The record is a 60-nucleotide RNA sequence from Microbacterium stercoris, which matches "msiK RNA" in Rfam. By type it is a cis-regulatory element. A search with the family's covariance model found it, with a score of 64 bits. NCBI's taxonomy places the organism under Bacteria, Actinomycetes, Micrococcales, Microbacteriaceae, Microbacterium.

RNA sequence: GUACGUCGCUCCAUCACUACGGAUCGUCCGGCACGUACCUGCCGGUGAAGGAGAAACAGA
Numbered sequence: 001g002u003a004c005g006u007c008g009c010u011c012c013a014u015c016a017c018u019a020c021g022g023a024u025c026g027u028c029c030g031g032c033a034c035g036u037a038c039c040u041g042c043c044g045g046u047g048a049a050g051g052a053g054a055a056a057c058a059g060a
Base pairs, nucleotide, nucleotide: 010052011051012050014048015047016046028045029044030043031042032041033040